[Rfam]
RNA sequence: CUGUGCGCAGGAUAGCAACGGCAUCCUUUUUAAAAUUUUGAUACGUCAUUACGAGGAGGAACGACGAAGGAAUCUGUUUGUUUUGUAAUCAGAUGGUGCUAGAUUUCUUGAAGGAAUUUAAGAAUGAAUCACUUUUUAAAAAGAUACAGUGGAUAGCCUGACAACGC
Numbered sequence: 001c002u003g004u005g006c007g008c009a010g011g012a013u014a015g016c017a018a019c020g021g022c023a024u025c026c027u028u029u030u031u032a033a034a035a036u037u038u039u040g041a042u043a044c045g046u047c048a049u050u051a052c053g054a055g056g057a058g059g060a061a062c063g064a065c066g067a068a069g070g071a072a073u074c075u076g077u078u079u080g081u082u083u084u085g086u087a088a089u090c091a092g093a094u095g096g097u098g099c100u101a102g103a104u105u106u107c108u109u110g111a112a113g114g115a116a117u118u119u120a121a122g123a124a125u126g127a128a129u130c131a132c133u134u135u136u137u138a139a140a141a142a143g144a145u146a147c148a149g150u151g152g153a154u155a156g157c158c159u160g161a162c163a164a165c166g167c
Stems, first nucleotide, its partner, number of pairs: 009159003013155002018150002023145003029140007